[Rfam]
RNA sequence: AAAACAGCAAGAAGAGUAAAUGGAAAAAUUGUUUUAAGCGAGUCGUUGGUUGAUGAAAAACGAUAACAAUUGACUGUUGAAGAUGGUCUUGUUGAGAAGUUCUAUUGCUGAGUUGUGCUGAAUAAUAAGGCAAUAGCGGGAACUCCCGUUAGCGAGUCGAAGUAUCUUCUGGAGAUAAAUAAGAAUGUACUUUUGAAGGAAUAGUUUGUGAGAACUAUUUAAAUUAAGGUGGUAACGCGAAAAGCAGUCUUUUCGUCCUUAGC
Numbered sequence: 001a002a003a004a005c006a007g008c009a010a011g012a013a014g015a016g017u018a019a020a021u022g023g024a025a026a027a028a029u030u031g032u033u034u035u036a037a038g039c040g041a042g043u044c045g046u047u048g049g050u051u052g053a054u055g056a057a058a059a060a061c062g063a064u065a066a067c068a069a070u071u072g073a074c075u076g077u078u079g080a081a082g083a084u085g086g087u088c089u090u091g092u093u094g095a096g097a098a099g100u101u102c103u104a105u106u107g108c109u110g111a112g113u114u115g116u117g118c119u120g121a122a123u124a125a126u127a128a129g130g131c132a133a134u135a136g137c138g139g140g141a142a143c144u145c146c147c148g149u150u151a152g153c154g155a156g157u158c159g160a161a162g163u164a165u166c167u168u169c170u171g172g173a174g175a176u177a178a179a180u181a182a183g184a185a186u187g188u189a190c191u192u193u194u195g196a197a198g199g200a201a202u203a204g205u206u207u208g209u210g211a212g213a214a215c216u217a218u219u220u221a222a223a224u225u226a227a228g229g230u231g232g233u234a235a236c237g238c239g240a241a242a243a244g245c246a247g248u249c250u251u252u253u254c255g256u257c258c259u260u261a262g263c
Stems, first nucleotide, its partner, number of pairs: 007092006019078005031067003042064006103135007137148003200219007226260004237256007
RNA: T-box leader
Organism: Liquorilactobacillus ghanensis